Rfam assigns this 135-nucleotide sequence from Baryphthengus martii to the family "Small nucleolar RNA SNORA84". The literature on the family includes a 2002 paper in Curr Biol by Marker et al., "Experimental RNomics: identification of 140 candidates for small non-messenger RNAs in the plant Arabidopsis thaliana". By type it is an H/ACA-box small nucleolar RNA. Taxonomically the source falls in Baryphthengus (Eukaryota, Chordata, Dinosauria, Saurischia). Rfam 15.1 lists 757 matches to the family in 629 species. Pairs were carried over by alignment from the consensus structure, which was predicted with WAR.
[Rfam]
RNA sequence: GCCCCUUGGUUGCUGGCCACUGGUCUGUGUGUACAGGGCUUCAGCUGGUGGAACUGGGCCCCAAGCGCUUCUGUGAUUUACGCAGGGAGUCUGUGAUGUGCCAGCAGCUUCUGUAGCCCAGUCACAGUUACAGAC
Numbered sequence: 001g002c003c004c005c006u007u008g009g010u011u012g013c014u015g016g017c018c019a020c021u022g023g024u025c026u027g028u029g030u031g032u033a034c035a036g037g038g039c040u041u042c043a044g045c046u047g048g049u050g051g052a053a054c055u056g057g058g059c060c061c062c063a064a065g066c067g068c069u070u071c072u073g074u075g076a077u078u079u080a081c082g083c084a085g086g087g088a089g090u091c092u093g094u095g096a097u098g099u100g101c102c103a104g105c106a107g108c109u110u111c112u113g114u115a116g117c118c119c120a121g122u123c124a125c126a127g128u129u130a131c132a133g134a135c
Stems, first nucleotide, its partner, number of pairs: 001059004007050002010047001012045005020036003071127001073125006082117002084114001086112002089109001091107004